[Rfam]
RNA: U4atac minor spliceosomal RNA
RNA sequence: ACCGUCCUUAUCUUGGGGUUGCGCGGCCGCCCGAUGAACGCGUGGUGAGGGCGGCACUGCUAACGCCAGGCAACACAACCGGCGCCCGCUCCGCGAGCGAGGCGCAAUUUUUGGAACC
Numbered sequence: 001a002c003c004g005u006c007c008u009u010a011u012c013u014u015g016g017g018g019u020u021g022c023g024c025g026g027c028c029g030c031c032c033g034a035u036g037a038a039c040g041c042g043u044g045g046u047g048a049g050g051g052c053g054g055c056a057c058u059g060c061u062a063a064c065g066c067c068a069g070g071c072a073a074c075a076c077a078a079c080c081g082g083c084g085c086c087c088g089c090u091c092c093g094c095g096a097g098c099g100a101g102g103c104g105c106a107a108u109u110u111u112u113g114g115a116a117c118c
Stems, first nucleotide, its partner, number of pairs: 006018004021060003026055007038046002082105005088098004